[Rfam]
RNA: MIR2118 microRNA precursor family
Organism: Leersia perrieri
RNA sequence: GCCUGUAAGAGGAAGAAAGAGAGGGCCUAAGAGCAGUGGGAAUGGGAACAUGGAGGAAAGCCCCAAAAUUGUUUCUUCCUUCAGAAAUGGAGGUGAAAUUUUGGUUUGGUUUUUUCCCGAUGCCUCCCAUUCCUAUCGUUAUUAAGCACUCCUUCCUCUUCCAUUUGGCU
Numbered sequence: 001g002c003c004u005g006u007a008a009g010a011g012g013a014a015g016a017a018a019g020a021g022a023g024g025g026c027c028u029a030a031g032a033g034c035a036g037u038g039g040g041a042a043u044g045g046g047a048a049c050a051u052g053g054a055g056g057a058a059a060g061c062c063c064c065a066a067a068a069u070u071g072u073u074u075c076u077u078c079c080u081u082c083a084g085a086a087a088u089g090g091a092g093g094u095g096a097a098a099u100u101u102u103g104g105u106u107u108g109g110u111u112u113u114u115u116c117c118c119g120a121u122g123c124c125u126c127c128c129a130u131u132c133c134u135a136u137c138g139u140u141a142u143u144a145a146g147c148a149c150u151c152c153u154u155c156c157u158c159u160u161c162c163a164u165u166u167g168g169c170u
Base pairs, nucleotide, nucleotide: 009161010160011159012158013157015155016154017153021151022150023149026146028144029143030142032140033139034138037135038134039133040132041131042130043129044128045127046126047125049122050121051120053118055117056116057115058114059113060112
Dot-bracket structure: ........(((((.(((...(((..(.(((.(((..(((((((((((.(((.(.((((((...................................................))))))).)))..)))))))))))..))).))).)..))).))).))))).........